[Rfam]
RNA sequence: GUCGAGAACCUUUACUCGGAUCGUCCGGCACGUUCCUGCCGGUGAAGGGAUGUACC
Numbered sequence: 001g002u003c004g005a006g007a008a009c010c011u012u013u014a015c016u017c018g019g020a021u022c023g024u025c026c027g028g029c030a031c032g033u034u035c036c037u038g039c040c041g042g043u044g045a046a047g048g049g050a051u052g053u054a055c056c
Base pairs, nucleotide, nucleotide: 009048010047011046012045013044014043025042026041027040028039029038030037